A member of the RNA family "chrB-a RNA" from Hankyongella ginsenosidimutans, 87 nucleotides long. The family's consensus secondary structure is taken from published work. The match comes from Rfam's covariance-model search (63 bits). Rfam classes the family as a cis-regulatory element.
RNA sequence: AGUAAGGGGUUAUUCGCGACUACCCCGUGAGGCGGCAGCCCAAAGAUCGCGUCCAAGCUCCCAAAAUCAAAGGGAUGGACGCUCAUG
Dot-bracket structure: .....(((((...........)))))......................((((((......................)))))).....
Numbered sequence: 001a002g003u004a005a006g007g008g009g010u011u012a013u014u015c016g017c018g019a020c021u022a023c024c025c026c027g028u029g030a031g032g033c034g035g036c037a038g039c040c041c042a043a044a045g046a047u048c049g050c051g052u053c054c055a056a057g058c059u060c061c062c063a064a065a066a067u068c069a070a071a072g073g074g075a076u077g078g079a080c081g082c083u084c085a086u087g
Stems, first nucleotide, its partner, number of pairs: 006026005049082006